[Rfam]
RNA: Purine riboswitch aptamer
Organism: Clostridium sp. AM58-1XD
RNA sequence: GUAAUAUGUGAAUGUUGUGCUUAUAUAAGUUCAUAAUCGGAUGAACGUUUCUACCAACUACCGUAAUAGUUGACUAUGGCCGCGAAAAGGCGUUCU
Numbered sequence: 001g002u003a004a005u006a007u008g009u010g011a012a013u014g015u016u017g018u019g020c021u022u023a024u025a026u027a028a029g030u031u032c033a034u035a036a037u038c039g040g041a042u043g044a045a046c047g048u049u050u051c052u053a054c055c056a057a058c059u060a061c062c063g064u065a066a067u068a069g070u071u072g073a074c075u076a077u078g079g080c081c082g083c084g085a086a087a088a089g090g091c092g093u094u095c096u
Stems, first nucleotide, its partner, number of pairs: 018082002021079005029046006055072006